[Rfam]
RNA sequence: CCUAGGGGAGCGUUUUAUCCACGUCAGCACAAAGCACUUCCUUGAGGGCGUGCUUUGUGCUGAUGUGGACAAAACACUCUCCCAAGG
Numbered sequence: 001c002c003u004a005g006g007g008g009a010g011c012g013u014u015u016u017a018u019c020c021a022c023g024u025c026a027g028c029a030c031a032a033a034g035c036a037c038u039u040c041c042u043u044g045a046g047g048g049c050g051u052g053c054u055u056u057g058u059g060c061u062g063a064u065g066u067g068g069a070c071a072a073a074a075c076a077c078u079c080u081c082c083c084a085a086g087g
Stems, first nucleotide, its partner, number of pairs: 001086001003084001005082006012075005018069004023064015040047002
This 87-nucleotide RNA from Gossypium stocksii belongs to the Rfam family "MIR7486 microRNA precursor family". Gene Ontology terms of the family: RISC complex and miRNA-mediated post-transcriptional gene silencing. It scores 70 bits against the family's covariance model. The organism belongs to Gossypium, within Eukaryota.